[Rfam]
RNA sequence: GAGCCAUAGGUGCCACCCAAUUUCAUGUCUUUUCUGACAUUUUUAUCUGGAGAUAGUUUCAGCUAGAUCUGAUCAGGCUG
Dot-bracket structure: .((((......................................................................)))).
Description:
Shown here is an 80-nucleotide sequence from Otolemur garnettii, a member of the family "Small nucleolar RNA SNORD111". For this family Rfam cites "RNomics: an experimental approach that identifies 201 candidates for novel, small, non-messenger RNAs in mouse" (Huttenhofer et al., EMBO J, 2001). A search with the family's covariance model found it, with a score of 48 bits. The family's consensus secondary structure was predicted with RNAalifold. Taxonomically the source falls in Otolemur (Eukaryota, Eumetazoa, Amniota, Eutheria).